[Rfam]
Nucleotides: 076
Base pairs, nucleotide, nucleotide: 002016003015006012021034022033023032025030047074048073049072050071051070052069
Number, partner (000 for none) and nucleotide at each position: 001000a002016u003015g004000c005000a006012c007000c008000a009000c010000u011000c012006g013000c014000a015003u016002g017000c018000u019000c020000g021034g022033g023032u024000u025030c026000g027000u028000g029000c030025g031000c032023g033022c034021c035000a036000u037000c038000c039000a040000c041000g042000c043000c044000c045000a046000c047074u048073u049072g050071g051070u052069g053000a054000c055000u056000g057000c058000u059000c060000g061000c062000u063000c064000c065000g066000u067000g068000g069052u070051g071050u072049u073048a074047g075000c076000c
Rfam assigns this 76-nucleotide sequence from Xanthomonas oryzae to the family "Xanthomonas sRNA sX9". The family's consensus secondary structure was predicted with RNAalifold. NCBI's taxonomy places the organism under Bacteria, Gammaproteobacteria, Lysobacterales, Lysobacteraceae, Xanthomonas oryzae pv. oryzae. By type it is a small RNA.